[Rfam]
RNA sequence: AGUCGGCGAGAACCAUUUGAAUCAAGUAUUGGAGUGAUUCACAUGGUUCUCAGAA
Numbered sequence: 001a002g003u004c005g006g007c008g009a010g011a012a013c014c015a016u017u018u019g020a021a022u023c024a025a026g027u028a029u030u031g032g033a034g035u036g037a038u039u040c041a042c043a044u045g046g047u048u049c050u051c052a053g054a055a
Stems, first nucleotide, its partner, number of pairs: 008051009018041007